RNA sequence: GUAAUGUUUCUUGCUCAAAUGAGUAUUCCAACCACAGUUGCACAUUCUAUAUAGUAGUCUUUUCUCUCUAUGACUAUGACUAUGGUGCUACAUGGUGCUGAGAUGCUCAUUUGAGCAAGCAGUGUUAC
Numbered sequence: 001g002u003a004a005u006g007u008u009u010c011u012u013g014c015u016c017a018a019a020u021g022a023g024u025a026u027u028c029c030a031a032c033c034a035c036a037g038u039u040g041c042a043c044a045u046u047c048u049a050u051a052u053a054g055u056a057g058u059c060u061u062u063u064c065u066c067u068c069u070a071u072g073a074c075u076a077u078g079a080c081u082a083u084g085g086u087g088c089u090a091c092a093u094g095g096u097g098c099u100g101a102g103a104u105g106c107u108c109a110u111u112u113g114a115g116c117a118a119g120c121a122g123u124g125u126u127a128c
Base pairs, nucleotide, nucleotide: 004125005124006123007122008121010119011118012117013116014115015114016113017112018111019110020109021108022107023106024105025104026103027102029100030099
Dot-bracket structure: ...(((((.((((((((((((((((((.((....................................................................)).)))))))))))))))))).)))))...

Rfam assigns this 128-nucleotide RNA sequence from Quercus lobata to the family "MIR828 microRNA precursor family".
The literature on the family includes a 2010 paper in Plant Cell by Ma et al., "Arabidopsis lyrata small RNAs: transient MIRNA and small interfering RNA loci within the Arabidopsis genus".
The source organism's lineage runs through Eukaryota, Magnoliopsida, Gunneridae, Fagales and Quercus.
The family has 16 seed sequences and 204 matches in Rfam 15.1.